[Rfam]
RNA sequence: UGGCUUAUGAUGAUAUUUGAAUUAUCUUAGCUAAUUUCAGUGAGAUUUUUAAUCAAUGAUCUGAUUGUUACACACCCUGAAGCCU
Numbered sequence: 001u002g003g004c005u006u007a008u009g010a011u012g013a014u015a016u017u018u019g020a021a022u023u024a025u026c027u028u029a030g031c032u033a034a035u036u037u038c039a040g041u042g043a044g045a046u047u048u049u050u051a052a053u054c055a056a057u058g059a060u061c062u063g064a065u066u067g068u069u070a071c072a073c074a075c076c077c078u079g080a081a082g083c084c085u
Stems, first nucleotide, its partner, number of pairs: 002084004

Shown here is an 85-nucleotide RNA sequence from Lupinus angustifolius, a member of the family "Small nucleolar RNA R11/Z151".
Its family is annotated with nucleolus and RNA processing in the Gene Ontology.
Rfam 15.1 lists 802 matches to the family in 218 species.
A reference for the family is Barneche et al. (2001), "Identification of 66 box C/D snoRNAs in Arabidopsis thaliana: extensive gene duplications generated multiple isoforms predicting new ribosomal RNA 2'-O-methylation sites", J Mol Biol.
It scores 74 bits against the family's covariance model.